[Rfam]
RNA sequence: GGUCAAGAGACCCAGCGACAAGCCCUGGCUUGCUGGGCGGCAACCCUCACGAAUGUGGCGGGGUGCUCCAGGAGGAGACCCGGUCCGACAACCGUCGGGCAAGCACAUUUC
Numbered sequence: 001g002g003u004c005a006a007g008a009g010a011c012c013c014a015g016c017g018a019c020a021a022g023c024c025c026u027g028g029c030u031u032g033c034u035g036g037g038c039g040g041c042a043a044c045c046c047u048c049a050c051g052a053a054u055g056u057g058g059c060g061g062g063g064u065g066c067u068c069c070a071g072g073a074g075g076a077g078a079c080c081c082g083g084u085c086c087g088a089c090a091a092c093c094g095u096c097g098g099g100c101a102a103g104c105a106c107a108u109u110u111c
Stems, first nucleotide, its partner, number of pairs: 001080004009038001011037006021030002039067003044063003048058001050057001083100007